[Rfam]
Source information
Shown here is a 120-nucleotide RNA from Glycine max, a member of the family "MIR1520 microRNA precursor family". Lineage of the source: Eukaryota > Magnoliopsida > fabids > Fabaceae > Glycine subgen. Soja. The match comes from Rfam's covariance-model search (82 bits). Rfam 15.1 lists 1,934 matches to the family in 15 species.
RNA sequence: UUUUAAUUGGACGAUGAUUAUCAGGUGUCAGUUCUGAUUGGAAGUUGACAACAACAAUACAGUUUCAUCGUCCAUAGAGUCAACGUCCAAUCAGAACCUGAUAUGUGACCGUCAUCGUCC
Numbered sequence: 001u002u003u004u005a006a007u008u009g010g011a012c013g014a015u016g017a018u019u020a021u022c023a024g025g026u027g028u029c030a031g032u033u034c035u036g037a038u039u040g041g042a043a044g045u046u047g048a049c050a051a052c053a054a055c056a057a058u059a060c061a062g063u064u065u066c067a068u069c070g071u072c073c074a075u076a077g078a079g080u081c082a083a084c085g086u087c088c089a090a091u092c093a094g095a096a097c098c099u100g101a102u103a104u105g106u107g108a109c110c111g112u113c114a115u116c117g118u119c120c
Stems, first nucleotide, its partner, number of pairs: 021108003025104002029100003032096004037091006